RNA sequence: GCUGGAGGACUAAGAAGGCUGAGUCUGAUGAAGCAAGACUCUGCUGAUACAAUCCUCCUAGAGAAAAGGGUGGGAGAGAGCAGCCCUUCCUGGAGACGGUCUCAGGGCUGACUGCGCCACCCAACACCG
Numbered sequence: 001g002c003u004g005g006a007g008g009a010c011u012a013a014g015a016a017g018g019c020u021g022a023g024u025c026u027g028a029u030g031a032a033g034c035a036a037g038a039c040u041c042u043g044c045u046g047a048u049a050c051a052a053u054c055c056u057c058c059u060a061g062a063g064a065a066a067a068g069g070g071u072g073g074g075a076g077a078g079a080g081c082a083g084c085c086c087u088u089c090c091u092g093g094a095g096a097c098g099g100u101c102u103c104a105g106g107g108c109u110g111a112c113u114g115c116g117c118c119a120c121c122c123a124a125c126a127c128c129g
Stems, first nucleotide, its partner, number of pairs: 002061002004058006017045003021041006068122004079113002081110007092101002
RNA: Small Cajal body specific RNA 4
Organism: Pteropus vampyrus